[Rfam]
RNA sequence: AAUGAUAAAGGUAAACCCGCCGAAAGACGGGGGCGCAAAGCUAUGGGUCUAAGGCUUUAAGCUAUGACUGCCAGGCUGCCAUUG
Numbered sequence: 001a002a003u004g005a006u007a008a009a010g011g012u013a014a015a016c017c018c019g020c021c022g023a024a025a026g027a028c029g030g031g032g033g034c035g036c037a038a039a040g041c042u043a044u045g046g047g048u049c050u051a052a053g054g055c056u057u058u059a060a061g062c063u064a065u066g067a068c069u070g071c072c073a074g075g076c077u078g079c080c081a082u083u084g
Base pairs, nucleotide, nucleotide: 003081004080011036012035016031017030018029019028021026034070039077040076041075042074044073045072046071047068048067049066